The record is a 120-nucleotide sequence from Roseimaritima multifibrata, which matches "Group II catalytic intron D1-D4-3" in Rfam. The organism belongs to Roseimaritima, within Bacteria.
RNA sequence: ACCCGUCAGGUGACGUACAGAAACCACAUAGAGGCCGGUAGCUCCAGGCGAGUGUCCAUGCGAAUGCGAAGCCGAACCGGAAGACGGAGUGCAGGUAGAUGUGGCACUUGGGCGGGGAUA
Numbered sequence: 001a002c003c004c005g006u007c008a009g010g011u012g013a014c015g016u017a018c019a020g021a022a023a024c025c026a027c028a029u030a031g032a033g034g035c036c037g038g039u040a041g042c043u044c045c046a047g048g049c050g051a052g053u054g055u056c057c058a059u060g061c062g063a064a065u066g067c068g069a070a071g072c073c074g075a076a077c078c079g080g081a082a083g084a085c086g087g088a089g090u091g092c093a094g095g096u097a098g099a100u101g102u103g104g105c106a107c108u109u110g111g112g113c114g115g116g117g118a119u120a
Stems, first nucleotide, its partner, number of pairs: 002116006008109005024104006034096003038092003042089004047073003052067004